[Rfam]
RNA sequence: ACUGCAAGCCGCGUUAUCGGGCCGUGCCUAGCGCAGGGUCAGGAAAGUCUGGACAGCAUAGGGCAGCGCCUCCUGCUAACGGCAGGACAUCCUGGUAAAACGGGAUCGAGACAGUGCCACAGAAAAUUACCGCUCUUCUUGUAAGGGUAAGGGUGAAAACGUGGGGUAAGAGCCCACGGCAAUGGUUGGAGACAGCCAUUGGGGGUAAACCUGGCGUGCUGAAAUGCCAUGUAUAGAACUGGUUGGGAGCGGCCCGUUCCCGCUGCAGCCUUCGGGCGGCACACGGUUCAGGGUAGGCAGAUACAGGUGUCUGGCAACAGGCAUCGCAGAUAAAUGAUAACGGACCCGUGCAAACGGGAUGACAGAAUCCGGCUUACAGGCUUGCAGUUUUU
Dot-bracket structure: ((((((((((((((((((.((((.(((.....))).))))....[[[.[[[[[((((.....[..(((((((.(((.....))).))(((((((......)))))).)((...(((((...........((((((((.....))))))..)).......((((((.......)))))).(((((((((....)))))))).).)))..)))))))))))))...((((.......(((((............]...............................)))))......))))......((((((((....))))))))..........))))))).........................]]]]]]]].).))))))))))....
Record summary: The family of this 392-nucleotide RNA from Cnuella takakiae is "Bacterial RNase P class A". The organism belongs to Cnuella, within Bacteria. A search with the family's covariance model found it, with a score of 230 bits. From the family's description: Ribonuclease P (RNase P) is a ubiquitous endoribonuclease, found in archaea, bacteria and eukarya as well as chloroplasts and mitochondria. Its family is annotated with tRNA processing, dimeric ribonuclease P complex and ribonuclease P activity in the Gene Ontology. It is annotated as a ribozyme.